[Rfam]
RNA sequence: GGUCCAAAUUUGGAGUAGAGUAGAUUAUUAGGAUCAGCUGACCAUACCCAACUAUUCCACUCCGAGUUUGUGCUC
Dot-bracket structure: (((.(((((.((((((.((((((.(...((.(.((....)).).))...).)))))).)))))).))))).))).
Notes: The family of this 75-nucleotide sequence from Haemonchus placei is "mir-5928 microRNA precursor family". The family's consensus secondary structure was predicted with RNAalifold. The match comes from Rfam's covariance-model search (60 bits). The organism belongs to Haemonchus, within Eukaryota. Its family is annotated with RISC complex and miRNA-mediated post-transcriptional gene silencing in the Gene Ontology.